Source information: The record is a 63-nucleotide sequence, which matches "S15-Halobacteria ribosomal protein leader" in Rfam. Its Rfam clan is "Ribosomal Protein S15 Leader clan".
RNA sequence: GUGGGAACGGCACGGCCGCGAAUCCGACCUGUCCCCGUCUGGGGCUUGGGAUCGCGGCAGUGC
Numbered sequence: 001g002u003g004g005g006a007a008c009g010g011c012a013c014g015g016c017c018g019c020g021a022a023u024c025c026g027a028c029c030u031g032u033c034c035c036c037g038u039c040u041g042g043g044g045c046u047u048g049g050g051a052u053c054g055c056g057g058c059a060g061u062g063c
Stems, first nucleotide, its partner, number of pairs: 010063004015058007024050002031045005